[Rfam]
RNA sequence: GGGCUGCUGUGAUGACUGCAUAGUUCAGCAGAUGAGCCGUGGUGAUCUCACUGUCACUGUCUUUCGCUCCUGUCUGAGGCAGCCC
Numbered sequence: 001g002g003g004c005u006g007c008u009g010u011g012a013u014g015a016c017u018g019c020a021u022a023g024u025u026c027a028g029c030a031g032a033u034g035a036g037c038c039g040u041g042g043u044g045a046u047c048u049c050a051c052u053g054u055c056a057c058u059g060u061c062u063u064u065c066g067c068u069c070c071u072g073u074c075u076g077a078g079g080c081a082g083c084c085c
Base pairs, nucleotide, nucleotide: 004082005081006080007079008078